RNA sequence: ACCCUCCGCAAGCCGAACCCUGUCGGCGGGGGAGUGUAUCCGUGAGACAGGGGCGGAGGACCCACCAAGCGGCAGUUUAUUCGCUGCCUUGGGGUGAAGCCGCAGCGGGCAAAGCCUCGGUGAAUCGUUCCACUGAGCUCUGUGCGGUGCGGCCGAGUUUUCUCUUGACUCGAAUCCGACAGCUAACUUCGCAGGCGCUUUGGGAGAGGUAUA
Numbered sequence: 001a002c003c004c005u006c007c008g009c010a011a012g013c014c015g016a017a018c019c020c021u022g023u024c025g026g027c028g029g030g031g032g033a034g035u036g037u038a039u040c041c042g043u044g045a046g047a048c049a050g051g052g053g054c055g056g057a058g059g060a061c062c063c064a065c066c067a068a069g070c071g072g073c074a075g076u077u078u079a080u081u082c083g084c085u086g087c088c089u090u091g092g093g094g095u096g097a098a099g100c101c102g103c104a105g106c107g108g109g110c111a112a113a114g115c116c117u118c119g120g121u122g123a124a125u126c127g128u129u130c131c132a133c134u135g136a137g138c139u140c141u142g143u144g145c146g147g148u149g150c151g152g153c154c155g156a157g158u159u160u161u162c163u164c165u166u167g168a169c170u171c172g173a174a175u176c177c178g179a180c181a182g183c184u185a186a187c188u189u190c191g192c193a194g195g196c197g198c199u200u201u202g203g204g205a206g207a208g209g210u211a212u213a
Stems, first nucleotide, its partner, number of pairs: 012196003018052007053192006063091002092177003100152004155171004
RNA: c-di-AMP riboswitch aptamer (ydaO/yuaA leader)